[Rfam]
RNA sequence: UCGAGCCGACCCUCUACUCGGAUCGUCCGGCACGUUCCUGCCGGUGAAGGGAUGUAUUC
Dot-bracket structure: .........((((.((..........((((((......)))))))).))))........
Numbered sequence: 001u002c003g004a005g006c007c008g009a010c011c012c013u014c015u016a017c018u019c020g021g022a023u024c025g026u027c028c029g030g031c032a033c034g035u036u037c038c039u040g041c042c043g044g045u046g047a048a049g050g051g052a053u054g055u056a057u058u059c
Stems, first nucleotide, its partner, number of pairs: 010051004015046002027044006
This 59-nucleotide sequence from Nocardia huaxiensis belongs to the Rfam family "msiK RNA". By type it is a cis-regulatory element.